[Rfam]
RNA: epsC RNA
Organism: Paenibacillus pectinilyticus
RNA sequence: UGGUAAUGUCUACUACACCGUUAUCAUUGUAGGCACUCGUGCAUGCCGUGGGCCCCAGGCCUUAGACGUUUAGCGUCAAUGGUGUGUAGUGAGGGGGGGUUAAAUGCCCU
Numbered sequence: 001u002g003g004u005a006a007u008g009u010c011u012a013c014u015a016c017a018c019c020g021u022u023a024u025c026a027u028u029g030u031a032g033g034c035a036c037u038c039g040u041g042c043a044u045g046c047c048g049u050g051g052g053c054c055c056c057a058g059g060c061c062u063u064a065g066a067c068g069u070u071u072a073g074c075g076u077c078a079a080u081g082g083u084g085u086g087u088a089g090u091g092a093g094g095g096g097g098g099g100u101u102a103a104a105u106g107c108c109c110u
Stems, first nucleotide, its partner, number of pairs: 001020004007035007036093004040088008050062005065077004096110005